Rfam assigns this 159-nucleotide RNA from Sebaldella termitidis to the family "M-box riboswitch aptamer (ykoK leader)". Rfam's curators put it in the seed alignment. Rfam 15.1 lists 1,095 matches to the family in 932 species. Lineage of the source: Bacteria > Fusobacteriota > Leptotrichiaceae > Sebaldella > Sebaldella termitidis.

RNA sequence: GAGAAAAAUCGGUAGGUGAGGCUAACAUAAGGAUAAGGAUUGCUGCCGCGAAAAGAUGGAGACAUUUUUAGCAGGUCUGAACAGUCUGGGUCGAAUAAGGCUCAGAAUAAUGCAAUUUCAUUGCCUUAUGAAGUUAAAACUUGAACGAUGAUUACAUUU
Numbered sequence: 001g002a003g004a005a006a007a008a009u010c011g012g013u014a015g016g017u018g019a020g021g022c023u024a025a026c027a028u029a030a031g032g033a034u035a036a037g038g039a040u041u042g043c044u045g046c047c048g049c050g051a052a053a054a055g056a057u058g059g060a061g062a063c064a065u066u067u068u069u070a071g072c073a074g075g076u077c078u079g080a081a082c083a084g085u086c087u088g089g090g091u092c093g094a095a096u097a098a099g100g101c102u103c104a105g106a107a108u109a110a111u112g113c114a115a116u117u118u119c120a121u122u123g124c125c126u127u128a129u130g131a132a133g134u135u136a137a138a139a140c141u142u143g144a145a146c147g148a149u150g151a152u153u154a155c156a157u158u159u
Base pairs, nucleotide, nucleotide: 007153008152009151010150011146013098015141016140017139020135021134022133026130027129028128029127030126031125032124039116040115041114042113043112045076046075047074048072049071055066056065057064058063085106086105087104090101091100092099